A member of the RNA family "Small nucleolar RNA SNORA29" from Salmo trutta, 145 nucleotides long. It scores 53 bits against the family's covariance model. By type it is an H/ACA-box small nucleolar RNA. ACA29 is a member of the H/ACA class of snoRNA that guide the sites of modification of uridines to pseudouridines. Rfam links the family to the GO terms nucleolus and RNA processing.

RNA sequence: GUUCCUGUUUUAUUACCGCCCAUCUGCCCACUCCACGGAUGUGUGGCUAUGCUAACGGGAUAGACUGUCCGUCGUAGUCUGAAGGGGUUGAGCCUGAGCGGUCUUAAUUCUGCCACCUCUAUAUGAAAUGACAACACAUUUGAGC
Dot-bracket structure: ...((((........((((.......................)))).........))))...........((((...............(((........................))).........)))).............